[Rfam]
Rfam assigns this 88-nucleotide sequence to the family "DUF3085 RNA". The base pairs follow the family's consensus structure, which is taken from published work. The family's RNA type in Rfam is cis-regulatory element.
RNA sequence: AGCGAGCUGGCGCAGCCGCACGGGCAACCGUCAAUCCAGCACUUCACAAGUCUUGUCGUUCUGACAGGACAUCCAUCAACCCACCGGG
Numbered sequence: 001a002g003c004g005a006g007c008u009g010g011c012g013c014a015g016c017c018g019c020a021c022g023g024g025c026a027a028c029c030g031u032c033a034a035u036c037c038a039g040c041a042c043u044u045c046a047c048a049a050g051u052c053u054u055g056u057c058g059u060u061c062u063g064a065c066a067g068g069a070c071a072u073c074c075a076u077c078a079a080c081c082c083a084c085c086g087g088g
Base pairs, nucleotide, nucleotide: 002019003018004017006040007039008038009037010036020031021030022029023028054066055065056064057063